Rfam assigns this 64-nucleotide RNA sequence from Erysipelotrichaceae bacterium 2_2_44A to the family "Pistol ribozyme". The literature on the family includes a 2015 paper in Nat Chem Biol by Weinberg et al., "New classes of self-cleaving ribozymes revealed by comparative genomics analysis". Rfam's curators put it in the seed alignment.

RNA sequence: AAUCGACUAGGCGAUUUAAAAUAGGUGUUAAGCCUAGUGCGGCAGGGUUCUUCCCUGCAUCACA
Dot-bracket structure: [[[[.((((((.]]]]........[[[....[)))))).].((((((.....))))))..]]].